[Rfam]
RNA sequence: UGUGCAAGUGAUGAUAGAACAGACAGGGACAUCAGCACUCUUAGGAGUAUGAUGACUCGUCUAUGGGAAUCUCUCUGAUGCAUU
Numbered sequence: 001u002g003u004g005c006a007a008g009u010g011a012u013g014a015u016a017g018a019a020c021a022g023a024c025a026g027g028g029a030c031a032u033c034a035g036c037a038c039u040c041u042u043a044g045g046a047g048u049a050u051g052a053u054g055a056c057u058c059g060u061c062u063a064u065g066g067g068a069a070u071c072u073c074u075c076u077g078a079u080g081c082a083u084u
Stems, first nucleotide, its partner, number of pairs: 002083005